[Rfam]
RNA sequence: CCUGGGGCUUACGCCGCCAGGCUAGGUGAUGUCGCCGCUGCGCGGCU
Numbered sequence: 001c002c003u004g005g006g007g008c009u010u011a012c013g014c015c016g017c018c019a020g021g022c023u024a025g026g027u028g029a030u031g032u033c034g035c036c037g038c039u040g041c042g043c044g045g046c047u
Stems, first nucleotide, its partner, number of pairs: 001021005006015003034046005
Shown here is a 47-nucleotide RNA from Kolteria novifilia, a member of the family "Acido-Lenti-1 RNA". The match comes from Rfam's covariance-model search (40 bits). Lineage of the source: Bacteria > Planctomycetia > Kolteriales > Kolteriaceae > Kolteria.